[Rfam]
RNA sequence: GGAAGAUCGUCGUCUCCGGUGAGACGAUUGGUUCUUAAUUCCAGUGGUAGCCGCCAAUGGCUCCCGGCAGGUUCGACUCCUGCGAUCUCC
Numbered sequence: 001g002g003a004a005g006a007u008c009g010u011c012g013u014c015u016c017c018g019g020u021g022a023g024a025c026g027a028u029u030g031g032u033u034c035u036u037a038a039u040u041c042c043a044g045u046g047g048u049a050g051c052c053g054c055c056a057a058u059g060g061c062u063c064c065c066g067g068c069a070g071g072u073u074c075g076a077c078u079c080c081u082g083c084g085a086u087c088u089c090c
Stems, first nucleotide, its partner, number of pairs: 002090001004088006011026006027045005047064001049062003068082004

Shown here is a 90-nucleotide RNA from Kluyvera cryocrescens, a member of the family "Selenocysteine transfer RNA". The organism belongs to Kluyvera, within Bacteria. The match comes from Rfam's covariance-model search (54 bits).